[Rfam]
RNA sequence: UGGGCAGGGAUUUUUUGUAUCAGUGUUCUGCUACAAUCAUUGCAUUAUUCUGAAAGAGUCCCUGCAAAAUGAAUUUGGGGAAGAUGGGCAGUUGUGUUUCAGUUUGCUGUUGGAAAUAACAACAAUCAUCUCCUCUACAUUU
Numbered sequence: 001u002g003g004g005c006a007g008g009g010a011u012u013u014u015u016u017g018u019a020u021c022a023g024u025g026u027u028c029u030g031c032u033a034c035a036a037u038c039a040u041u042g043c044a045u046u047a048u049u050c051u052g053a054a055a056g057a058g059u060c061c062c063u064g065c066a067a068a069a070u071g072a073a074u075u076u077g078g079g080g081a082a083g084a085u086g087g088g089c090a091g092u093u094g095u096g097u098u099u100c101a102g103u104u105u106g107c108u109g110u111u112g113g114a115a116a117u118a119a120c121a122a123c124a125a126u127c128a129u130c131u132c133c134u135c136u137a138c139a140u141u142u
Stems, first nucleotide, its partner, number of pairs: 004065007016044004077136004082131006091123004
RNA: small nucleolar RNA snoR135
Organism: Phaseolus vulgaris